[Rfam]
Rfam assigns this 59-nucleotide RNA sequence from Molossus molossus to the family "chrB-b RNA". It scores 38 bits against the family's covariance model. The family's consensus secondary structure is taken from published work.

RNA sequence: UGGGGGCUCGCAGACUCCCCUCCAGAACACUCUUCAGCCCUGUGCUCUCCAAGCUCUGC
Numbered sequence: 001u002g003g004g005g006g007c008u009c010g011c012a013g014a015c016u017c018c019c020c021u022c023c024a025g026a027a028c029a030c031u032c033u034u035c036a037g038c039c040c041u042g043u044g045c046u047c048u049c050c051a052a053g054c055u056c057u058g059c
Stems, first nucleotide, its partner, number of pairs: 002020005010059005025049002
The organism belongs to Molossus, within Eukaryota.